This 84-nucleotide RNA from Geobacter metallireducens belongs to the Rfam family "c-di-GMP-I-UAU riboswitch aptamer". A search with the family's covariance model found it, with a score of 69 bits. Pairs were carried over by alignment from the consensus structure, which is taken from published work. Its Rfam clan is "c-di-GMP_I riboswitch clan". Rfam 15.1 lists 17 matches to the family in 17 species.
RNA sequence: UUCCGAGAGGGCAAACUUCGGGUAACCGGAGGACGCAAAGCCACGGGUCCUGACUCCAUGGUCAGGAUAGCCGGGUUGUCGAAG
Numbered sequence: 001u002u003c004c005g006a007g008a009g010g011g012c013a014a015a016c017u018u019c020g021g022g023u024a025a026c027c028g029g030a031g032g033a034c035g036c037a038a039a040g041c042c043a044c045g046g047g048u049c050c051u052g053a054c055u056c057c058a059u060g061g062u063c064a065g066g067a068u069a070g071c072c073g074g075g076u077u078g079u080c081g082a083a084g
Stems, first nucleotide, its partner, number of pairs: 011036002016031006039077004044073003047068007